[Rfam]
RNA: Small nucleolar RNA CD11
Organism: Drosophila persimilis
RNA sequence: UCUCAAUUCCAUGAUGAAUGAUUUAGCAGAAGAGUUCUUGAAGACUAUAUUCAUCACCCAAUCCUGAAGUUAUU
Numbered sequence: 001u002c003u004c005a006a007u008u009c010c011a012u013g014a015u016g017a018a019u020g021a022u023u024u025a026g027c028a029g030a031a032g033a034g035u036u037c038u039u040g041a042a043g044a045c046u047a048u049a050u051u052c053a054u055c056a057c058c059c060a061a062u063c064c065u066g067a068a069g070u071u072a073u074u
Stems, first nucleotide, its partner, number of pairs: 002069002029037003